Enterococcus sRNA 55: a 54-nucleotide RNA from Barnesiella sp. An55.
On this family, see Innocenti et al., RNA 2015: "Whole-genome mapping of 5' RNA ends in bacteria by tagged sequencing: a comprehensive view in Enterococcus faecalis".
The family's consensus secondary structure was predicted with RNAfold.
It is annotated as a small RNA.
The match comes from Rfam's covariance-model search (48 bits).
RNA sequence: UAUAUAUUUUGGUUAUGUAGCAAUUUCGCUGGGAAGCGGGAUUGCUACUUUUUU
Numbered sequence: 001u002a003u004a005u006a007u008u009u010u011g012g013u014u015a016u017g018u019a020g021c022a023a024u025u026u027c028g029c030u031g032g033g034a035a036g037c038g039g040g041a042u043u044g045c046u047a048c049u050u051u052u053u054u
Stems, first nucleotide, its partner, number of pairs: 015049001018047013